[Rfam]
RNA sequence: CCAACGGCUCUUUUCAGAGCCACCUACUAUUUCUAUGAGGGAGCUG
Numbered sequence: 001c002c003a004a005c006g007g008c009u010c011u012u013u014u015c016a017g018a019g020c021c022a023c024c025u026a027c028u029a030u031u032u033c034u035a036u037g038a039g040g041g042a043g044c045u046g
Base pairs, nucleotide, nucleotide: 006021007020008019009018010017011016